[Rfam]
small nucleolar RNA snoR127: a 170-nucleotide sequence from Apostasia shenzhenica. Rfam classes the family as a C/D-box small nucleolar RNA. Taxonomically the source falls in Apostasia (Eukaryota, Embryophyta, Liliopsida, Asparagales). The family has 3 seed sequences and 273 matches in Rfam 15.1. The match comes from Rfam's covariance-model search (67 bits). For this family Rfam cites "Mining small RNA sequencing data: a new approach to identify small nucleolar RNAs in Arabidopsis" (Chen and Wu, Nucleic Acids Res, 2009).

RNA sequence: CUGGGAUGAUGCAAAUUAGCCAAAUCAGAUAUGCAAGUGCUCCUCUAGGCUGAUUGUUGCAAGUUUUCUUUGUGUGAACUGAAAGCACUUUGCUUGUCUUGUAAUGAUCGCCUAUGGUUGAAGCGCUUAGCUCUGAUGAUAACAGUGAGAUUGGUUGCUUGCUGACCAGA
Numbered sequence: 001c002u003g004g005g006a007u008g009a010u011g012c013a014a015a016u017u018a019g020c021c022a023a024a025u026c027a028g029a030u031a032u033g034c035a036a037g038u039g040c041u042c043c044u045c046u047a048g049g050c051u052g053a054u055u056g057u058u059g060c061a062a063g064u065u066u067u068c069u070u071u072g073u074g075u076g077a078a079c080u081g082a083a084a085g086c087a088c089u090u091u092g093c094u095u096g097u098c099u100u101g102u103a104a105u106g107a108u109c110g111c112c113u114a115u116g117g118u119u120g121a122a123g124c125g126c127u128u129a130g131c132u133c134u135g136a137u138g139a140u141a142a143c144a145g146u147g148a149g150a151u152u153g154g155u156u157g158c159u160u161g162c163u164g165a166c167c168a169g170a
Base pairs, nucleotide, nucleotide: 001169002168003167004166